A member of the RNA family "Mammalian CPEB3 ribozyme" from Crocodylus porosus, 77 nucleotides long.
RNA sequence: AGUUGCUAGUUUGUAGCCAUAGCAGAAGUGCUUAUGGUACAGCCUGUCAGAUUCCAAUGAAAUCAGUGAAUUCUGCU
Numbered sequence: 001a002g003u004u005g006c007u008a009g010u011u012u013g014u015a016g017c018c019a020u021a022g023c024a025g026a027a028g029u030g031c032u033u034a035u036g037g038u039a040c041a042g043c044c045u046g047u048c049a050g051a052u053u054c055c056a057a058u059g060a061a062a063u064c065a066g067u068g069a070a071u072u073c074u075g076c077u
Stems, first nucleotide, its partner, number of pairs: 013044001016043002021077007028040003048066001050064004